RNA sequence: CACGGCGAUAUUGUCCUGUCACAGCAGUAGCAUUCAGCCCUUACUGCUCGGUCGGGACAGUACUGCCGCC
Numbered sequence: 001c002a003c004g005g006c007g008a009u010a011u012u013g014u015c016c017u018g019u020c021a022c023a024g025c026a027g028u029a030g031c032a033u034u035c036a037g038c039c040c041u042u043a044c045u046g047c048u049c050g051g052u053c054g055g056g057a058c059a060g061u062a063c064u065g066c067c068g069c070c
Base pairs, nucleotide, nucleotide: 003068004067005066006065012059013058014057015056016055017054018053023048024047025046026045027044028043029042
Record summary
Shown here is a 70-nucleotide RNA sequence from Portunus trituberculatus, a member of the family "mir-1000 microRNA precursor family". The source organism's lineage runs through Eukaryota, Opisthokonta, Eubrachyura, Portunidae and Portunus. Rfam 15.1 lists 152 matches to the family in 150 species.